[Rfam]
Nucleotides: 172
Stems, first nucleotide, its partner, number of pairs: 001172007011070004017063002020060008029051001033046002036043002074131007084121003091114002093111005134165007145155002148152001
Number, partner (000 for none) and nucleotide at each position: 001172u002171g003170a004169u005168a006167c007166c008000a009000g010000a011070g012069g013068c014067c015000u016000g017063g018062g019000a020060u021059c022058a023057a024056a025055c026054a027053u028000c029051c030000g031000g032000c033046g034045c035000a036043g037042g038000c039000u040000u041000g042037c043036c044000c045034g046033c047000a048000a049000g050000a051029g052000a053027a054026u055025g056024u057023u058022u059021g060020g061000c062018c063017u064000u065000g066000g067014g068013g069012c070011c071000u072000c073000c074131a075130a076129a077128a078127a079126c080125a081000g082000g083000a084121a085120u086119a087000c088000g089000a090000g091114g092113u093111c094110a095109u096108u097107u098000u099000c100000c101000g102000a103000a104000g105000a106000a107097a108096a109095a110094u111093g112000a113092g114091c115000g116000g117000a118000u119086u120085g121084u122000g123000a124000a125080u126079g127078u128077u129076u130075u131074u132000g133000g134165g135164g136163a137162u138161u139160g140159c141000g142000g143000a144000a145155g146154c147000a148152c149000a150000u151000c152148g153000c154146g155145c156000g157000g158000a159140g160139c161138a162137a163136u164135c165134c166007g167006g168005u169004a170003u171002c172001a
The record is a 172-nucleotide RNA from Lachnoclostridium sp. An14, which matches "Clostridiales-1 RNA" in Rfam. A search with the family's covariance model found it, with a score of 92 bits. The family's consensus secondary structure is taken from published work.